Shown here is a 129-nucleotide sequence from Microtus ochrogaster, a member of the family "Small Cajal body specific RNA 24". Rfam links the family to the GO terms Cajal body, nucleolus and RNA processing. A reference for the family is Darzacq et al. (2002), "Cajal body-specific small nuclear RNAs: a novel class of 2'-O-methylation and pseudouridylation guide RNAs", EMBO J. Lineage of the source: Eukaryota > Teleostomi > Euteleostomi > Cricetidae > Microtus. From the family's description: scaRNAs are a specific class of small nuclear RNAs which localise to the Cajal bodies and guide the modification of RNA polymerase II transcribed spliceosomal RNAs U1, U2, U4, U5 and U12. Rfam classes the family as a small Cajal body RNA.

RNA sequence: UGGACAUUUAUAUUGUCAGUUUCUUCUCAAGGUGAAGAUAACUUUUUAUAAAUGUCCUAGAGAAAUAUAGUAGUUGUCUUUUCAUCCUUUUACAAGAAGAAAGGGUCGAUCGUCCCACUACUGACAUUU
Numbered sequence: 001u002g003g004a005c006a007u008u009u010a011u012a013u014u015g016u017c018a019g020u021u022u023c024u025u026c027u028c029a030a031g032g033u034g035a036a037g038a039u040a041a042c043u044u045u046u047u048a049u050a051a052a053u054g055u056c057c058u059a060g061a062g063a064a065a066u067a068u069a070g071u072a073g074u075u076g077u078c079u080u081u082u083c084a085u086c087c088u089u090u091u092a093c094a095a096g097a098a099g100a101a102a103g104g105g106u107c108g109a110u111c112g113u114c115c116c117a118c119u120a121c122u123g124a125c126a127u128u129u
Base pairs, nucleotide, nucleotide: 002057003056004055005054006053007052008051009050010049011048018043019042020041021040022038023037024036025035026034068123069122070121071120072119073118087103088102089101090100